[Rfam]
MIR8643 microRNA precursor family: a 141-nucleotide RNA from Gossypium stocksii. A search with the family's covariance model found it, with a score of 136 bits.

RNA sequence: AUUUCUUUUAACAUAUCAGGAAGUCGAAUUGGCAGUAAAGAAAGAAGUAGGAAGUUGAAAGCCAUCAUUGCCUACAACUAAAACCCAUACCAUGCUUCUUUCUUCACUGUCAAUUUGACUUCUUGAUAUGUUAAAGGAAAU
Numbered sequence: 001a002u003u004u005c006u007u008u009u010a011a012c013a014u015a016u017c018a019g020g021a022a023g024u025c026g027a028a029u030u031g032g033c034a035g036u037a038a039a040g041a042a043a044g045a046a047g048u049a050g051g052a053a054g055u056u057g058a059a060a061g062c063c064a065u066c067a068u069u070g071c072c073u074a075c076a077a078c079u080a081a082a083a084c085c086c087a088u089a090c091c092a093u094g095c096u097u098c099u100u101u102c103u104u105c106a107c108u109g110u111c112a113a114u115u116u117g118a119c120u121u122c123u124u125g126a127u128a129u130g131u132u133a134a135a136g137g138a139a140a141u
Stems, first nucleotide, its partner, number of pairs: 004138015020122012033109004038104009048094002051091001056087002